This 90-nucleotide sequence from Lactobacillus gasseri belongs to the Rfam family "Lacto-usp RNA". The family's RNA type in Rfam is small RNA.
RNA sequence: GAUCAAACUAAAGACGUUGGAAUUUAUGAAUAACAUCUGAAUCGGAAUACUAGUCUGAUCUAGGAUCCAUAUUCACUGCGACAUAGAUUC
Numbered sequence: 001g002a003u004c005a006a007a008c009u010a011a012a013g014a015c016g017u018u019g020g021a022a023u024u025u026a027u028g029a030a031u032a033a034c035a036u037c038u039g040a041a042u043c044g045g046a047a048u049a050c051u052a053g054u055c056u057g058a059u060c061u062a063g064g065a066u067c068c069a070u071a072u073u074c075a076c077u078g079c080g081a082c083a084u085a086g087a088u089u090c
Stems, first nucleotide, its partner, number of pairs: 021089008038075005044068003050063004